Rfam assigns this 252-nucleotide sequence from Thiorhodovibrio frisius to the family "Group II catalytic intron D1-D4-6".
Rfam's curators write: Group II introns are found in rRNA, tRNA and mRNA of organelles in fungi, plants and protists, and also in mRNA in bacteria.
Pairs were carried over by alignment from the consensus structure.
RNA sequence: UAAUUUCUAAGAGAGGCGGCUAACAAACACGCUCUGUAGCGAACCUGCGUGCAUAUUUUCGCAAGGCUAUGUAUGAAGCCAGGUGUAGUGAGUGUGCAGGCCGCGUGAAUGAGUCCCGCAACGGUAGUUGUUGUGGUCCAUGAGGAUAACCGCGCGCAAGCACGGUAAAGCCGACGAAUUCAAGGCACCGUAAGGCUGUGGUCUUUGGCGCGUUAAGGUAAGCGGCGAAGACACCACCGAGAUCUCCGAGCG
Number, nucleotide and partner (000 for none) at each position: 001u000002a000003a000004u000005u000006u000007c000008u000009a000010a035011g034012a033013g032014a000015g000016g000017c000018g028019g000020c000021u221022a000023a219024c218025a000026a000027a000028c018029a000030c000031g000032c013033u012034c011035u010036g000037u091038a000039g089040c088041g000042a000043a084044c083045c082046u000047g079048c075049g074050u073051g072052c071053a070054u069055a068056u000057u000058u000059u066060c065061g000062c000063a000064a000065g060066g059067c000068u055069a054070u053071g052072u051073a050074u049075g048076a000077a000078g000079c047080c000081a000082g045083g044084u043085g000086u000087a000088g040089u039090g000091a037092g000093u000094g000095u000096g000097c000098a000099g000100g000101c000102c000103g000104c000105g000106u000107g000108a000109a000110u000111g244112a000113g243114u242115c241116c000117c239118g238119c000120a000121a000122c000123g000124g000125u000126a000127g000128u000129u000130g000131u000132u000133g237134u236135g235136g234137u233138c000139c000140a000141u000142g000143a000144g000145g000146a000147u000148a000149a000150c000151c000152g000153c000154g000155c000156g000157c000158a000159a000160g000161c000162a000163c000164g000165g000166u000167a000168a000169a000170g196171c195172c194173g000174a000175c190176g189177a000178a000179u000180u000181c000182a000183a000184g000185g000186c000187a000188c000189c176190g175191u000192a000193a000194g172195g171196c170197u000198g000199u000200g000201g232202u231203c230204u229205u228206u227207g226208g000209c224210g223211c222212g000213u000214u000215a000216a000217g000218g024219u023220a000221a021222g211223c210224g209225g000226c207227g206228a205229a204230g203231a202232c201233a137234c136235c135236a134237c133238c118239g117240a000241g115242a114243u113244c111245u000246c000247c000248g000249a000250g000251c000252g000